[Rfam]
Nucleotides: 117
Base pairs, nucleotide, nucleotide: 006024008022009021011019012018013017055110056109057108058107067097068096071093072091073090074089075088076087077086078085
Number, partner (000 for none) and nucleotide at each position: 001000c002000a003000g004000c005000c006024u007000g008022u009021g010000c011019c012018u013017u014000c015000g016000g017013a018012a019011g020000a021009c022008a023000a024006a025000a026000g027000c028000u029000c030000u031000u032000c033000c034000a035000u036000a037000a038000c039000a040000u041000g042000c043000u044000a045000c046000a047000g048000u049000g050000a051000u052000g053000a054000a055110g056109g057108a058107g059000u060000u061000c062000u063000c064000a065000g066000g067097g068096c069000u070000a071093c072091c073090a074089a075088c076087c077086u078085u079000a080000c081000a082000g083000a084000a085078g086077a087076g088075g089074u090073u091072g092000a093071g094000u095000a096068g097067u098000a099000g100000u101000a102000u103000a104000u105000u106000u107058c108057u109056c110055c111000u112000a113000c114000a115000u116000u117000g